[Rfam]
This 88-nucleotide RNA sequence from Propionispira arboris belongs to the Rfam family "c-di-GMP-I riboswitch aptamer".
NCBI's taxonomy places the organism under Bacteria, Bacillati, Negativicutes, Selenomonadaceae, Propionispira.
RNA sequence: UUUUCCAAAUAGCAAACCUAUUGAAAAAUAGGGACGCAAAGCCGUGGGUCUAAAGAUAUUAUAAGUCUAUGACUGCCAGGUUGCAUCA
Number, nucleotide and partner (000 for none) at each position: 001u000002u000003u000004u000005c000006c000007a000008a000009a000010u000011a000012g037013c036014a000015a000016a000017c032018c031019u030020a029021u028022u027023g000024a000025a000026a000027a022028a021029u020030a019031g018032g017033g000034a000035c000036g013037c012038a000039a000040a082041g081042c080043c079044g000045u078046g077047g076048g073049u072050c071051u000052a000053a000054a000055g067056a066057u065058a000059u000060u000061a000062u000063a000064a000065g057066u056067c055068u000069a000070u000071g050072a049073c048074u000075g000076c047077c046078a045079g043080g042081u041082u040083g000084c000085a000086u000087c000088a000